[Rfam]
RNA: ODC internal ribosome entry site (IRES)
Organism: Felis catus
RNA sequence: UUUUCCACUGCUGCACCGAGGGCACGCCCUUCCUCCGGGGGGCUUGGGAUCCCGGAGAAUUGCCUUUGUGAAAAGCUGGCAAUAAUUUCUUUAAAUUCCGUCUCUUAGUUUUCCACGUAAGUAUCCGUGGUUGCUGCGGGUUAUUGUUAAGCAUCAUUAAGUGUCCCAGUGAAUUCUGAGUGAGUUUCUCCACCCUGUUUGCAGUUUGUUACGUUUCAGAGGAACAUCAAGAAACC
Number, nucleotide and partner (000 for none) at each position: 001u000002u000003u000004u000005c000006c079007a000008c000009u000010g076011c075012u074013g000014c000015a000016c070017c068018g067019a066020g065021g064022g063023c062024a061025c000026g060027c000028c000029c000030u000031u000032c000033c000034u000035c000036c000037g000038g000039g000040g053041g052042g051043c000044u000045u000046g000047g000048g000049a000050u000051c042052c041053c040054g000055g000056a000057g000058a000059a000060u026061u024062g023063c022064c021065u020066u019067u018068g017069u000070g016071a000072a000073a000074a012075g011076c010077u000078g000079g006080c000081a000082a000083u000084a000085a000086u234087u233088u232089c231090u230091u229092u000093a000094a000095a000096u224097u223098c222099c221100g000101u000102c000103u000104c000105u000106u000107a000108g000109u000110u000111u000112u000113c000114c000115a000116c000117g000118u000119a000120a000121g000122u000123a000124u000125c000126c000127g000128u000129g000130g000131u000132u000133g000134c000135u000136g000137c000138g000139g000140g000141u000142u000143a000144u000145u000146g000147u000148u000149a000150a000151g000152c000153a000154u000155c000156a000157u000158u000159a000160a000161g000162u000163g000164u000165c000166c000167c000168a000169g000170u000171g000172a000173a000174u000175u000176c000177u000178g000179a000180g000181u000182g000183a000184g000185u000186u000187u000188c000189u000190c000191c000192a000193c000194c000195c000196u000197g000198u000199u000200u000201g000202c000203a000204g000205u000206u000207u000208g000209u000210u000211a000212c000213g000214u000215u000216u000217c000218a000219g000220a000221g099222g098223a097224a096225c000226a000227u000228c000229a091230a090231g089232a088233a087234a086235c000236c000